[Rfam]
RNA sequence: CUGCAACUAUGGCAGUACUUUUUGUCAACAGCAGUUUACCUAGUAAAUGUUGAUACUUUGAGUCUGAGUGG
Numbered sequence: 001c002u003g004c005a006a007c008u009a010u011g012g013c014a015g016u017a018c019u020u021u022u023u024g025u026c027a028a029c030a031g032c033a034g035u036u037u038a039c040c041u042a043g044u045a046a047a048u049g050u051u052g053a054u055a056c057u058u059u060g061a062g063u064c065u066g067a068g069u070g071g
Base pairs, nucleotide, nucleotide: 002070003069004068009025010024011023
The record is a 71-nucleotide RNA from Cebus imitator, which matches "Small nucleolar RNA SNORD56" in Rfam. The family's consensus secondary structure was predicted with PFOLD. By type it is a C/D-box small nucleolar RNA. Gene Ontology terms of the family: nucleolus and RNA processing. A search with the family's covariance model found it, with a score of 75 bits. Lineage of the source: Eukaryota > Gnathostomata > Sarcopterygii > Cebidae > Cebus. For this family Rfam cites "Purified box C/D snoRNPs are able to reproduce site-specific 2'-O-methylation of target RNA in vitro" (Galardi et al., Mol Cell Biol, 2002).